[Rfam]
Overview
The family of this 68-nucleotide RNA sequence from Solimonas aquatica is "int-alpA RNA". The organism belongs to Solimonas, within Bacteria. The base pairs follow the family's consensus structure, which is taken from published work.
RNA sequence: GCCGCACCUAGCCCGACGGGGCGAAAAGCCGGCACCUUCCCGGCCCGGUGCGGCGCCUUUCUUGAAGG
Numbered sequence: 001g002c003c004g005c006a007c008c009u010a011g012c013c014c015g016a017c018g019g020g021g022c023g024a025a026a027a028g029c030c031g032g033c034a035c036c037u038u039c040c041c042g043g044c045c046c047g048g049u050g051c052g053g054c055g056c057c058u059u060u061c062u063u064g065a066a067g068g
Stems, first nucleotide, its partner, number of pairs: 001054008011022004028044005035068005